[Rfam]
RNA sequence: ACGAGGUGCCCUUUCCUCGGGACGGAUUGAAGCUUCACCAACUCCGAUCUUCCCAGGUCAAAGGGCACUUCUGCUGUUACGACACACUCAAGGCGCCAAUUGCAUCGGUGCAUUCAG
Numbered sequence: 001a002c003g004a005g006g007u008g009c010c011c012u013u014u015c016c017u018c019g020g021g022a023c024g025g026a027u028u029g030a031a032g033c034u035u036c037a038c039c040a041a042c043u044c045c046g047a048u049c050u051u052c053c054c055a056g057g058u059c060a061a062a063g064g065g066c067a068c069u070u071c072u073g074c075u076g077u078u079a080c081g082a083c084a085c086a087c088u089c090a091a092g093g094c095g096c097c098a099a100u101u102g103c104a105u106c107g108g109u110g111c112a113u114u115c116a117g
Stems, first nucleotide, its partner, number of pairs: 003071011018056001020054002024050004029045001031043002099114001101112004
Actinobacteria sRNA Ms_IGR-7: a 117-nucleotide RNA from Mycobacterium pseudokansasii. The pairing is the family consensus, mapped onto this sequence. For this family Rfam cites "Identification of small RNAs in Mycobacterium smegmatis using heterologous Hfq" (Li et al., RNA, 2013).